The family of this 149-nucleotide RNA sequence from Sus scrofa is "small Cajal body-specific RNA 17". Gene Ontology terms of the family: nucleolus, Cajal body and RNA processing. Lineage of the source: Eukaryota > Opisthokonta > Deuterostomia > Vertebrata > Sus. scaRNAs are a specific class of small nuclear RNAs which localise to the Cajal bodies and guide the modification of RNA polymerase II transcribed spliceosomal RNAs U1, U2, U4, U5 and U12. The complete human U12-22/U4-8 scaRNA is composed of two tandem C/D box domains (termed U12-22 and U4-8). The family's RNA type in Rfam is small Cajal body RNA.

RNA sequence: CCCCCUGGUCCUGGAUGCAGCCCCUGAUGAACUUGCAGUAUUUUCAUUAUAUGAUUGGGCUCCAUGGCUGGUAGUCCCUCUGGCCCUGGUCCAGAUCCUGAGACAAUUGAGAAAAUAUGACAAGGGAAGUGGGACCAGAGAACCAUGGG
Numbered sequence: 001c002c003c004c005c006u007g008g009u010c011c012u013g014g015a016u017g018c019a020g021c022c023c024c025u026g027a028u029g030a031a032c033u034u035g036c037a038g039u040a041u042u043u044u045c046a047u048u049a050u051a052u053g054a055u056u057g058g059g060c061u062c063c064a065u066g067g068c069u070g071g072u073a074g075u076c077c078c079u080c081u082g083g084c085c086c087u088g089g090u091c092c093a094g095a096u097c098c099u100g101a102g103a104c105a106a107u108u109g110a111g112a113a114a115a116u117a118u119g120a121c122a123a124g125g126g127a128a129g130u131g132g133g134a135c136c137a138g139a140g141a142a143c144c145a146u147g148g149g
Base pairs, nucleotide, nucleotide: 001149002148003147006145007144008143009142011140012139020135021133022132023131055101056100057099058098059097062094067090068089069088070087071086